[Rfam]
RNA sequence: UUUAUUCUUCGGGGCAGGGUGAAAUUCCCGACCGGCGGUGACAGUCCGCGAAUCGAUUGAUCAAUCGAUGGAAUCGGUGUAAUUCCGAUACCGACAGUAGAGUCUGGAUGGGAGAAGAGGAAG
Dot-bracket structure: ..(.((((((......(((.......))).[[((((((.....[[))))..(((............)))...(((((.......)))))]])).(((....]]))).......)))))).)..
Shown here is a 123-nucleotide RNA from Isachenkonia alkalipeptolytica, a member of the family "FMN riboswitch aptamer (RFN element)".
The RFN element is a highly conserved domain that is found frequently in the 5'-untranslated regions of prokaryotic mRNAs that encode for flavin mononucleotide (FMN) biosynthesis and transport proteins.
The family's consensus secondary structure is taken from published work.